[Rfam]
RNA sequence: UCAAUACAGAACUUGGCACUGGAAGAAUUCACAGAUUGUAUUUGAAUCGUGAUUCUUUUAAUGCCAUAUUCUGUGCUGA
Numbered sequence: 001u002c003a004a005u006a007c008a009g010a011a012c013u014u015g016g017c018a019c020u021g022g023a024a025g026a027a028u029u030c031a032c033a034g035a036u037u038g039u040a041u042u043u044g045a046a047u048c049g050u051g052a053u054u055c056u057u058u059u060a061a062u063g064c065c066a067u068a069u070u071c072u073g074u075g076c077u078g079a
Base pairs, nucleotide, nucleotide: 003077005075006074007073008072009071010070014066015065016064017063018062020060021059022058023056025055026054027053029052030051031050032049034047
Shown here is a 79-nucleotide RNA from Rhynchophorus ferrugineus, a member of the family "mir-263 microRNA precursor family". The base pairs follow the family's consensus structure, which was predicted with RNAalifold. The family is grouped with related families in Rfam's "mir-182 clan". A reference for the family is Li et al. (2009), "Direct sequencing and expression analysis of a large number of miRNAs in Aedes aegypti and a multi-species survey of novel mosquito miRNAs", BMC Genomics. Taxonomically the source falls in Rhynchophorus (Eukaryota, Pancrustacea, Coleoptera, Curculionoidea). Rfam 15.1 lists 368 matches to the family in 211 species. Its family is annotated with miRNA-mediated post-transcriptional gene silencing and RISC complex in the Gene Ontology.